[Rfam]
RNA sequence: AAAGGUUGCAUGUUUGAGCAGAAGUGCUCAUGGCAUGGCCAUAUCAGAUUCCAACAAAUCUGUGAAUUCUGCU
Numbered sequence: 001a002a003a004g005g006u007u008g009c010a011u012g013u014u015u016g017a018g019c020a021g022a023a024g025u026g027c028u029c030a031u032g033g034c035a036u037g038g039c040c041a042u043a044u045c046a047g048a049u050u051c052c053a054a055c056a057a058a059u060c061u062g063u064g065a066a067u068u069c070u071g072c073u
Stems, first nucleotide, its partner, number of pairs: 007041002012039003017073007024036003045062006

Annotation: Shown here is a 73-nucleotide RNA sequence from Alligator mississippiensis, a member of the family "Mammalian CPEB3 ribozyme". Taxonomically the source falls in Alligator (Eukaryota, Metazoa, Sarcopterygii, Tetrapoda). Rfam links the family to the GO term RNA nuclease activity.